[Rfam]
RNA sequence: GAAUGAAAUGAGGAACAUAGGUGAUUUUGAUUGCUGUUAUGAUGGCAAUUAUUGUAUUAGCUCUAUCUGAUCAUUC
Numbered sequence: 001g002a003a004u005g006a007a008a009u010g011a012g013g014a015a016c017a018u019a020g021g022u023g024a025u026u027u028u029g030a031u032u033g034c035u036g037u038u039a040u041g042a043u044g045g046c047a048a049u050u051a052u053u054g055u056a057u058u059a060g061c062u063c064u065a066u067c068u069g070a071u072c073a074u075u076c
Stems, first nucleotide, its partner, number of pairs: 002075004032047004
RNA: Small nucleolar RNA Z102/R77
Organism: Cucumis sativus